This 172-nucleotide RNA from Thomasclavelia spiroformis belongs to the Rfam family "Group II catalytic intron D1-D4-3". The pairing is the family consensus, mapped onto this sequence. It scores 120 bits against the family's covariance model. Gene Ontology term of the family: Group II intron splicing. NCBI's taxonomy places the organism under Bacteria, Erysipelotrichia, Erysipelotrichales, Thomasclavelia, Thomasclavelia spiroformis.
RNA sequence: UCCAUCGUAAGGUGUGAACAGGAGGAAGUUGGAGGCAAAGUCCUGACCCAAGGAAUACGAACUAUUUUAGGCAGAAGCUUAUCGGAUGAGAUUGCUAAACAAAUCGAAGUCCAAUAGUACGACGGAAUAAGCAGUGUAAAGAUAGUGGGUACAUAGGAUGAAAGUGUUAUGU
Number, nucleotide and partner (000 for none) at each position: 001u016002c000003c014004a013005u012006c011007g000008u000009a000010a000011g006012g005013u004014g003015u000016g001017a000018a000019c000020a000021g000022g000023a000024g000025g000026a000027a000028g172029u171030u000031g000032g168033a000034g000035g165036c164037a000038a000039a000040g159041u158042c157043c156044u155045g154046a150047c149048c148049c147050a146051a000052g000053g000054a000055a000056u000057a000058c000059g000060a000061a000062c145063u144064a143065u142066u141067u000068u000069a000070g000071g137072c136073a135074g000075a000076a000077g132078c131079u130080u129081a128082u127083c000084g112085g111086a110087u109088g000089a000090g105091a104092u103093u102094g000095c000096u000097a000098a000099a000100c000101a000102a093103a092104u091105c090106g000107a000108a000109g087110u086111c085112c084113a000114a000115u000116a000117g000118u000119a000120c000121g000122a000123c000124g000125g000126a000127a082128u081129a080130a079131g078132c077133a000134g000135u073136g072137u071138a000139a000140a000141g066142a065143u064144a063145g062146u050147g049148g048149g047150u046151a000152c000153a000154u045155a044156g043157g042158a041159u040160g000161a000162a000163a000164g036165u035166g000167u000168u032169a000170u000171g029172u028